[Rfam]
RNA sequence: AGCGCGAUGACGUCAACCGCGCGGGUGACCACGAGAUAGUCACGAAGAGCGAUACCGUGCCGAUUCUC
Dot-bracket structure: ....((.((..((..(((.....))).)).....(.((.((.(.....).)))).).)).))......
Numbered sequence: 001a002g003c004g005c006g007a008u009g010a011c012g013u014c015a016a017c018c019g020c021g022c023g024g025g026u027g028a029c030c031a032c033g034a035g036a037u038a039g040u041c042a043c044g045a046a047g048a049g050c051g052a053u054a055c056c057g058u059g060c061c062g063a064u065u066c067u068c
Stems, first nucleotide, its partner, number of pairs: 005062002008059002012029002016026003035056001037054002040052002043049001